The family of this 182-nucleotide RNA from Bacillus sp. OxB-1 is "Lysine riboswitch aptamer". For this family Rfam cites "Riboswitches Control Fundamental Biochemical Pathways in Bacillus subtilis and Other Bacteria" (Mandal et al., Cell, 2003). The match comes from Rfam's covariance-model search (104 bits). Its family is annotated with lysine biosynthetic process in the Gene Ontology.
RNA sequence: CGAUAGGGUAGAGGCUGCAUUGUUUAAGAGUAGCACAUGCGAGAGUGACGUCAGAGACCAUGUGUGAAAGGAAGCAUUGCCGAAGUCUGACAGGUAUGGUCGAAUUCCUGCUGGCUGGGUUUAUUCCGAAUAGGGAUAAUACUGUCAAUCGUCGGUUCUAAGAUUGAUGAGCUACAAUCGUA
Dot-bracket structure: .......((((.....(((.(((((.......(((((((...................)))))))......))))).)))...((((.(.((((.(........).))))).))))((..(((((((.....)))))))..)).((((((...........))))))....)))).......